[Rfam]
RNA sequence: UCUGGCAGUGGUGCCACUCCUGUCCUCUCUGAGAACUCAGCUCUGUGACGAGCCUCUCCCUGCUGUGCUCGGGAGCUGAGCCAGA
Numbered sequence: 001u002c003u004g005g006c007a008g009u010g011g012u013g014c015c016a017c018u019c020c021u022g023u024c025c026u027c028u029c030u031g032a033g034a035a036c037u038c039a040g041c042u043c044u045g046u047g048a049c050g051a052g053c054c055u056c057u058c059c060c061u062g063c064u065g066u067g068c069u070c071g072g073g074a075g076c077u078g079a080g081c082c083a084g085a
Base pairs, nucleotide, nucleotide: 001085002084003083004082005081006080

The record is an 85-nucleotide RNA from Elachura formosa, which matches "Small nucleolar RNA SNORD103/SNORD85" in Rfam. It is annotated as a C/D-box small nucleolar RNA. A reference for the family is Vitali et al. (2003), "Identification of 13 novel human modification guide RNAs", Nucleic Acids Res. Rfam 15.1 lists 1,349 matches to the family in 595 species. Gene Ontology terms of the family: RNA processing and nucleolus.